[Rfam]
Nucleotides: 070
Base pairs, nucleotide, nucleotide: 009062010061011060012059013058014057015056016055017054018053022049023048024047025046026045027044029042
Number, partner (000 for none) and nucleotide at each position: 001000c002000c003000a004000c005000g006000g007000u008000g009062c010061a011060u012059u013058a014057u015056u016055a017054c018053u019000c020000a021000c022049g023048g024047u025046a026045c027044g028000a029042g030000u031000u032000u033000g034000a035000g036000g037000c038000c039000u040000a041000g042029c043000g044027c045026g046025u047024a048023c049022c050000a051000a052000a053018a054017g055016u056015a057014a058013u059012a060011a061010u062009g063000c064000a065000c066000c067000g068000u069000g070000a
Overview: Rfam assigns this 70-nucleotide RNA sequence from Electrophorus electricus to the family "mir-126 microRNA precursor family". It scores 63 bits against the family's covariance model. The source organism's lineage runs through Eukaryota, Craniata, Euteleostomi, Otomorpha and Electrophorus.